RNA sequence: GGCAGUCCCCACGGGCGCCCGAGCACGGGCUGAGAUCGCGCUGAUUGCUGCGCGAGCACCGUUCGAACCUGUCCGGUUAGUACCGGCGAAGGAAGAGAGGAAUGGUGCAAU
Numbered sequence: 001g002g003c004a005g006u007c008c009c010c011a012c013g014g015g016c017g018c019c020c021g022a023g024c025a026c027g028g029g030c031u032g033a034g035a036u037c038g039c040g041c042u043g044a045u046u047g048c049u050g051c052g053c054g055a056g057c058a059c060c061g062u063u064c065g066a067a068c069c070u071g072u073c074c075g076g077u078u079a080g081u082a083c084c085g086g087c088g089a090a091g092g093a094a095g096a097g098a099g100g101a102a103u104g105g106u107g108c109a110a111u
Base pairs, nucleotide, nucleotide: 006101007100008099010097011062012061013060014059017030018029019028020027021026037054038053039052040051041050068092069091070090073086074085075084076083